Shown here is a 61-nucleotide RNA from Pristionchus pacificus, a member of the family "mir-8364 microRNA precursor family".
RNA sequence: UCUUCAUUUUACACACUCUCUAACCGGUCAGAACGGCUAGAGAGUGUGUAAAAUGAAGAGG
Numbered sequence: 001u002c003u004u005c006a007u008u009u010u011a012c013a014c015a016c017u018c019u020c021u022a023a024c025c026g027g028u029c030a031g032a033a034c035g036g037c038u039a040g041a042g043a044g045u046g047u048g049u050a051a052a053a054u055g056a057a058g059a060g061g
Stems, first nucleotide, its partner, number of pairs: 001059007010050001012048006019041004

Pairs were carried over by alignment from the consensus structure, which was predicted with RNAalifold. The match comes from Rfam's covariance-model search (77 bits). Gene Ontology terms of the family: RISC complex and miRNA-mediated post-transcriptional gene silencing.